The family of this 312-nucleotide RNA sequence from Halonotius aquaticus is "Archaeal signal recognition particle RNA". Clan: SRP clan. Its family is annotated with signal recognition particle, plasma membrane targeting and SRP-dependent cotranslational protein targeting to membrane, signal sequence recognition in the Gene Ontology. The match comes from Rfam's covariance-model search (187 bits). The literature on the family includes a 2003 paper in Nucleic Acids Res by Rosenblad et al., "SRPDB: Signal Recognition Particle Database".
[Rfam]
RNA sequence: GAGUGGACUAGGCCGGGCAGGUAGGCCCUGCUCUUCACCCGUGAGACAGUCUUUAGCGGGGGCCGAACAGCCGGGGCGUCGGUCGAACCGACACAGGCCUCGGGAGCCAACGUGGAAACCUCGUCCGUCGGGGACAGCGGUUCGGUGUGUACACCCGCAGGGGUGUUCCACACCGGUUUGUCGGCGACAGUGGGUCAGGCGCGGAAGCGAGCAGCCCAUCGCCGGACGCCCGUCGCUCGCCGGAUCGCGGGGUGGAGGAGGCAACCGAGAAUCCCUGUGUCCGGAACGGCCGGCAAGUCGGCCUGUCCACCA
Numbered sequence: 001g002a003g004u005g006g007a008c009u010a011g012g013c014c015g016g017g018c019a020g021g022u023a024g025g026c027c028c029u030g031c032u033c034u035u036c037a038c039c040c041g042u043g044a045g046a047c048a049g050u051c052u053u054u055a056g057c058g059g060g061g062g063c064c065g066a067a068c069a070g071c072c073g074g075g076g077c078g079u080c081g082g083u084c085g086a087a088c089c090g091a092c093a094c095a096g097g098c099c100u101c102g103g104g105a106g107c108c109a110a111c112g113u114g115g116a117a118a119c120c121u122c123g124u125c126c127g128u129c130g131g132g133g134a135c136a137g138c139g140g141u142u143c144g145g146u147g148u149g150u151a152c153a154c155c156c157g158c159a160g161g162g163g164u165g166u167u168c169c170a171c172a173c174c175g176g177u178u179u180g181u182c183g184g185c186g187a188c189a190g191u192g193g194g195u196c197a198g199g200c201g202c203g204g205a206a207g208c209g210a211g212c213a214g215c216c217c218a219u220c221g222c223c224g225g226a227c228g229c230c231c232g233u234c235g236c237u238c239g240c241c242g243g244a245u246c247g248c249g250g251g252g253u254g255g256a257g258g259a260g261g262c263a264a265c266c267g268a269g270a271a272u273c274c275c276u277g278u279g280u281c282c283g284g285a286a287c288g289g290c291c292g293g294c295a296a297g298u299c300g301g302c303c304u305g306u307c308c309a310c311c312a
Stems, first nucleotide, its partner, number of pairs: 003310006011064004015033007038060005070302005078294004083289003088283001090281008099269005106262003111257001113255001118253007125243003129239004133234003137230001138228002140178001142176008151166006181225007191218005200209003